Shown here is a 108-nucleotide RNA sequence from Vagococcus fluvialis, a member of the family "23S methyl RNA motif". The family's RNA type in Rfam is cis-regulatory element. For this family Rfam cites "Identification of 22 candidate structured RNAs in bacteria using the CMfinder comparative genomics pipeline" (Weinberg et al., Nucleic Acids Res, 2007).
RNA sequence: UUUUCAAAGGUUUUUAUCAGAUUCCUGUUCUGAUAAAAGUUGUUGAGGGAUGACUCCCAUCAACGUAACGACUCGCAGUGAACUGACACCGAGGCGAUACGUUUUUUU
Numbered sequence: 001u002u003u004u005c006a007a008a009g010g011u012u013u014u015u016a017u018c019a020g021a022u023u024c025c026u027g028u029u030c031u032g033a034u035a036a037a038a039g040u041u042g043u044u045g046a047g048g049g050a051u052g053a054c055u056c057c058c059a060u061c062a063a064c065g066u067a068a069c070g071a072c073u074c075g076c077a078g079u080g081a082a083c084u085g086a087c088a089c090c091g092a093g094g095c096g097a098u099a100c101g102u103u104u105u106u107u108u
Base pairs, nucleotide, nucleotide: 002048003047004046005045006044007043009041010040011039012038013037014036015035016034017033018032019031062103063102064101065100066099067098069096070095072093073092074091075090078089079088080087